The family of this 217-nucleotide RNA sequence from Morella rubra is "Plant small nucleolar RNA U3". The literature on the family includes a 1997 paper in Nucleic Acids Res by Zwieb, "The uRNA database". Pairs were carried over by alignment from the consensus structure, which is taken from published work. Rfam 15.1 lists 3,759 matches to the family in 258 species. Rfam's curators write: Small nucleolar RNAs (snoRNAs) are involved in the processing and modification of rRNA in the nucleolus. There are two main classes of snoRNAs: the box C/D class, and the box H/ACA class. U3 snoRNA is a member of the box C/D class.
[Rfam]
RNA sequence: ACGACCUUAUUUGAACAGGAAUUGUUCUAUAGGGCCGUACCUCUGUAUCCUUGAUCACUAAGGAGACAAGAACUCAAGUCUGGUGGAUGAACUAUGGCCGUUCGAUCAGAGCGUGAUUAACAGCCUGAAGGUCCUUCAAUCUGUGGCAGUAGAGGAUCGUUCUGAGCCAUCUUACUGCCUGGGAUGGUCAAUUGGUCAUGCGGUUGUCUGACAGACU
Number, nucleotide and partner (000 for none) at each position: 001a038002c037003g035004a000005c033006c032007u031008u000009a000010u000011u000012u000013g027014a026015a025016c024017a023018g022019g000020a000021a000022u018023u017024g016025u015026u014027c013028u000029a000030u000031a007032g006033g005034g000035c003036c000037g002038u001039a000040c000041c000042u000043c000044u068045g067046u066047a000048u064049c063050c062051u061052u060053g059054a000055u000056c000057a000058c000059u053060a052061a051062g050063g049064a048065g000066a046067c045068a044069a000070g000071a000072a000073c000074u000075c000076a000077a000078g216079u215080c214081u213082g212083g000084u000085g000086g000087a000088u000089g000090a000091a000092c000093u000094a000095u000096g000097g204098c203099c202100g201101u200102u000103c000104g197105a196106u195107c194108a193109g000110a161111g160112c159113g158114u000115g000116a000117u000118u000119a000120a150121c149122a000123g147124c146125c145126u000127g137128a136129a135130g134131g000132u000133c000134c130135u129136u128137c127138a000139a000140u000141c000142u000143g000144u000145g125146g124147c123148a000149g121150u120151a000152g000153a000154g000155g000156a000157u000158c113159g112160u111161u110162c000163u190164g189165a188166g000167c187168c186169a185170u184171c183172u182173u000174a000175c000176u000177g000178c000179c000180u000181g000182g172183g171184a170185u169186g168187g167188u165189c164190a163191a000192u000193u108194g107195g106196u105197c104198a000199u000200g101201c100202g099203g098204u097205u000206g000207u000208c000209u000210g000211a000212c082213a081214g080215a079216c078217u000